[Rfam]
RNA sequence: UGGAGGCAUCGCGACUGGCGUUGAAGGUGGAUGACCACCGGGGAGCGAUCAUCGCACGAACCGCGCGCCUGGGUUCGGGUG
Number, nucleotide and partner (000 for none) at each position: 001u000002g000003g053004a052005g000006g050007c000008a049009u048010c047011g046012c045013g000014a000015c042016u041017g069018g068019c067020g066021u065022u000023g000024a000025a000026g000027g038028u037029g036030g035031a000032u000033g000034a000035c030036c029037a028038c027039c000040g000041g016042g015043g000044a000045g012046c011047g010048a009049u008050c006051a000052u004053c003054g000055c000056a000057c000058g076059a075060a074061c073062c072063g000064c000065g021066c020067g019068c018069c017070u000071g000072g062073g061074u060075u059076c058077g000078g000079g000080u000081g000
This 81-nucleotide RNA sequence from Nanchangia anserum belongs to the Rfam family "ZMP/ZTP riboswitch aptamer (pfl RNA motif)". For this family Rfam cites "An ancient riboswitch class in bacteria regulates purine biosynthesis and one-carbon metabolism" (Kim et al., Mol Cell, 2015). The base pairs follow the family's consensus structure, which is taken from published work.